[Rfam]
RNA sequence: CAGUUAAAAAGCUCGUAGUCUAUGUUGAAACUUUUCGAUCUGUUUAAAGUGCUUUCUUCAUGGAAGUAUCUUUUAAGCUACGAAUUGUUUUAUAGAACCUCCUAACGAUGGCUAUUAAGUUAGUGUCGCUUUAAAUUGGAGGUUUCUACCUUGAGUAAAAUAGAGUGUUUAAAGCAUACAGUUUUGUAUGAAUAUAUUAGCAUGGGAUAGUAAUAAUGAUUAGAGUUUGUCAAUCUAUUCAUUAGUGGUUAAUAGGAGCAGUCGGGGGCGUUCAUAUUCAGUGGUCAGAGGUGAAAUUCUUGGAUUCACUGAGGAUGAACAGAUGCGAAAGCGUUCGCCAAGGAUGUUUUCAUUGAUCAAGAACGAAAGUUAGGGGAUCGAAGAUGAUCAGAUACCGUCGUAGUCCUAACCGUAAACUAUGCCGACCGAGAAUCGGAGGAUGUUAAAUGAAUGACUCCCCGGAACUCAUAGAGAAAUCUUGAGUCUUUGGGUUCUGGGGGGAGUAUGGUCGCAAGGCUGAAACUUAAAGGAAU
Numbered sequence: 001c002a003g004u005u006a007a008a009a010a011g012c013u014c015g016u017a018g019u020c021u022a023u024g025u026u027g028a029a030a031c032u033u034u035u036c037g038a039u040c041u042g043u044u045u046a047a048a049g050u051g052c053u054u055u056c057u058u059c060a061u062g063g064a065a066g067u068a069u070c071u072u073u074u075a076a077g078c079u080a081c082g083a084a085u086u087g088u089u090u091u092a093u094a095g096a097a098c099c100u101c102c103u104a105a106c107g108a109u110g111g112c113u114a115u116u117a118a119g120u121u122a123g124u125g126u127c128g129c130u131u132u133a134a135a136u137u138g139g140a141g142g143u144u145u146c147u148a149c150c151u152u153g154a155g156u157a158a159a160a161u162a163g164a165g166u167g168u169u170u171a172a173a174g175c176a177u178a179c180a181g182u183u184u185u186g187u188a189u190g191a192a193u194a195u196a197u198u199a200g201c202a203u204g205g206g207a208u209a210g211u212a213a214u215a216a217u218g219a220u221u222a223g224a225g226u227u228u229g230u231c232a233a234u235c236u237a238u239u240c241a242u243u244a245g246u247g248g249u250u251a252a253u254a255g256g257a258g259c260a261g262u263c264g265g266g267g268g269c270g271u272u273c274a275u276a277u278u279c280a281g282u283g284g285u286c287a288g289a290g291g292u293g294a295a296a297u298u299c300u301u302g303g304a305u306u307c308a309c310u311g312a313g314g315a316u317g318a319a320c321a322g323a324u325g326c327g328a329a330a331g332c333g334u335u336c337g338c339c340a341a342g343g344a345u346g347u348u349u350u351c352a353u354u355g356a357u358c359a360a361g362a363a364c365g366a367a368a369g370u371u372a373g374g375g376g377a378u379c380g381a382a383g384a385u386g387a388u389c390a391g392a393u394a395c396c397g398u399c400g401u402a403g404u405c406c407u408a409a410c411c412g413u414a415a416a417c418u419a420u421g422c423c424g425a426c427c428g429a430g431a432a433u434c435g436g437a438g439g440a441u442g443u444u445a446a447a448u449g450a451a452u453g454a455c456u457c458c459c460c461g462g463a464a465c466u467c468a469u470a471g472a473g474a475a476a477u478c479u480u481g482a483g484u485c486u487u488u489g490g491g492u493u494c495u496g497g498g499g500g501g502a503g504u505a506u507g508g509u510c511g512c513a514a515g516g517c518u519g520a521a522a523c524u525u526a527a528a529g530g531a532a533u
Base pairs, nucleotide, nucleotide: 001496002495003494009493011364013362014361018357019356020355255351256350257349258348259346260345262343263342267339268338269337270336273317274316277313278312279311280310281309282308283307284306288299289298290297325332326331369410370409371408372407373406374405379403383399384398385397386396421492422491423490424485425484426483428467429466430465433462434461435460436459438458439457440456442455443454444453471478472477498525499524500523507518508517509516510515